Shown here is a 147-nucleotide sequence from Neogale vison, a member of the family "U4 spliceosomal RNA".
RNA sequence: AUUAUUUUUCAGUGGCAGUAUCGUAGCCAAUGAGGUUUAUCCGAGGCGCGAUUAUUGCUAAUUGAAAACUUUUCACAUAUAUUAUUUUUAAUUUUUCAGUAGUCACAUUAAAGAAGCUUAAAAAAUGGUGAGAUUAAUUUUAAAAUC
Numbered sequence: 001a002u003u004a005u006u007u008u009u010c011a012g013u014g015g016c017a018g019u020a021u022c023g024u025a026g027c028c029a030a031u032g033a034g035g036u037u038u039a040u041c042c043g044a045g046g047c048g049c050g051a052u053u054a055u056u057g058c059u060a061a062u063u064g065a066a067a068a069c070u071u072u073u074c075a076c077a078u079a080u081a082u083u084a085u086u087u088u089u090a091a092u093u094u095u096u097c098a099g100u101a102g103u104c105a106c107a108u109u110a111a112a113g114a115a116g117c118u119u120a121a122a123a124a125a126u127g128g129u130g131a132g133a134u135u136a137a138u139u140u141u142a143a144a145a146u147c
Base pairs, nucleotide, nucleotide: 020052021051022050023049024048026047027046028045034042035041084134085133086132087130089128091126092125093124094123095122096121
It is annotated as a spliceosomal small nuclear RNA. A search with the family's covariance model found it, with a score of 72 bits. Pairs were carried over by alignment from the consensus structure, which is taken from published work. Gene Ontology terms of the family: spliceosomal tri-snRNP complex assembly and U4 snRNP.